[Rfam]
RNA sequence: UGCAAGUAUUUUACAGUUGAUAAGCAACUGUCUCUUGUACAGAUCGUGUAUUAAUAU
Number, nucleotide and partner (000 for none) at each position: 001u000002g000003c000004a000005a000006g000007u000008a000009u000010u000011u000012u000013a000014c000015a000016g000017u000018u037019g036020a035021u000022a033023a000024g031025c030026a000027a000028c000029u000030g025031u024032c000033u022034c000035u020036u019037g018038u000039a000040c000041a000042g000043a000044u000045c000046g000047u000048g000049u000050a000051u000052u000053a000054a000055u000056a000057u000